[Rfam]
RNA sequence: AAAAAAGCAGGGGCUGUUGCCCAUGUGAACAGGUCUCUCGUAAAUUCAGGGAAAUACUUUCAUUGUUACUGGGUGAACCUCUGUUUUUUCUAUUUAUGGCUGAAGGUUCAAUAAAUGAUGAGACAUUU
Numbered sequence: 001a002a003a004a005a006a007g008c009a010g011g012g013g014c015u016g017u018u019g020c021c022c023a024u025g026u027g028a029a030c031a032g033g034u035c036u037c038u039c040g041u042a043a044a045u046u047c048a049g050g051g052a053a054a055u056a057c058u059u060u061c062a063u064u065g066u067u068a069c070u071g072g073g074u075g076a077a078c079c080u081c082u083g084u085u086u087u088u089u090c091u092a093u094u095u096a097u098g099g100c101u102g103a104a105g106g107u108u109c110a111a112u113a114a115a116u117g118a119u120g121a122g123a124c125a126u127u128u
Base pairs, nucleotide, nucleotide: 005046006045011036012035014032015031016030059122060121061120062119063118064117065116066115067114074110075109076108077107078106079105080104
RNA: Small nucleolar RNA snoR74
Organism: Hevea brasiliensis